[Rfam]
RNA: PhotoRC-II RNA
RNA sequence: GAACGUUGUCUCACCCACGCCUCACCAAGACUAAACAGCGUGGUAAAAUAAUAGUCUUUCAUACCUACAUCGGAGGGUGAUGUAGGAAUAUCUUACUCG
Numbered sequence: 001g002a003a004c005g006u007u008g009u010c011u012c013a014c015c016c017a018c019g020c021c022u023c024a025c026c027a028a029g030a031c032u033a034a035a036c037a038g039c040g041u042g043g044u045a046a047a048a049u050a051a052u053a054g055u056c057u058u059u060c061a062u063a064c065c066u067a068c069a070u071c072g073g074a075g076g077g078u079g080a081u082g083u084a085g086g087a088a089u090a091u092c093u094u095a096c097u098c099g
Stems, first nucleotide, its partner, number of pairs: 016042005027058005064086007